The record is a 65-nucleotide RNA from Arenimonas donghaensis, which matches "int-alpA RNA" in Rfam. The family's consensus secondary structure is taken from published work.
[Rfam]
RNA sequence: GCUGCGCCUAGGCUGAUCCCCGAACGCCGGGAACCUUCCCCGGCUGGCGCGGCCCUUCAGGAAGG
Numbered sequence: 001g002c003u004g005c006g007c008c009u010a011g012g013c014u015g016a017u018c019c020c021c022g023a024a025c026g027c028c029g030g031g032a033a034c035c036u037u038c039c040c041c042g043g044c045u046g047g048c049g050c051g052g053c054c055c056u057u058c059a060g061g062a063a064g065g
Stems, first nucleotide, its partner, number of pairs: 001053008011021002027043005034065005
It scores 46 bits against the family's covariance model.